This 236-nucleotide RNA from Orientia tsutsugamushi belongs to the Rfam family "Group II catalytic intron D1-D4-6". Pairs were carried over by alignment from the consensus structure. The organism belongs to Orientia tsutsugamushi, within Bacteria. For this family Rfam cites "The ins and outs of group II introns" (Bonen and Vogel, Trends Genet, 2001).

RNA sequence: AAAAUCCAGUUAUGGAAGGAGAAGCUACUUCCACUAUAUAGCGAGUCUUGUGCUGCUGAAGGUAGCAACAGUAGUAAAGCGUAGAUAGGUGAAACAUUCGAGCCGAAACCAAAUGGUGAACGUGAUAGCCAUGAAAGUAAGAUGUAGUGGAAGCUGAUAUGUUAUACCACAUAGUAGGCAAAAGAAGAUUGGAGGUCAAACUAGUGAAAAUCCAAAAAUUUUCAACCACUGGAGUC
Numbered sequence: 001a002a003a004a005u006c007c008a009g010u011u012a013u014g015g016a017a018g019g020a021g022a023a024g025c026u027a028c029u030u031c032c033a034c035u036a037u038a039u040a041g042c043g044a045g046u047c048u049u050g051u052g053c054u055g056c057u058g059a060a061g062g063u064a065g066c067a068a069c070a071g072u073a074g075u076a077a078a079g080c081g082u083a084g085a086u087a088g089g090u091g092a093a094a095c096a097u098u099c100g101a102g103c104c105g106a107a108a109c110c111a112a113a114u115g116g117u118g119a120a121c122g123u124g125a126u127a128g129c130c131a132u133g134a135a136a137g138u139a140a141g142a143u144g145u146a147g148u149g150g151a152a153g154c155u156g157a158u159a160u161g162u163u164a165u166a167c168c169a170c171a172u173a174g175u176a177g178g179c180a181a182a183a184g185a186a187g188a189u190u191g192g193a194g195g196u197c198a199a200a201c202u203a204g205u206g207a208a209a210a211u212c213c214a215a216a217a218a219u220u221u222u223c224a225a226c227c228a229c230u231g232g233a234g235u236c
Stems, first nucleotide, its partner, number of pairs: 011038005018032004041090002045086004049081002051076008061066001128235002132231002147229004153179003158173004184223007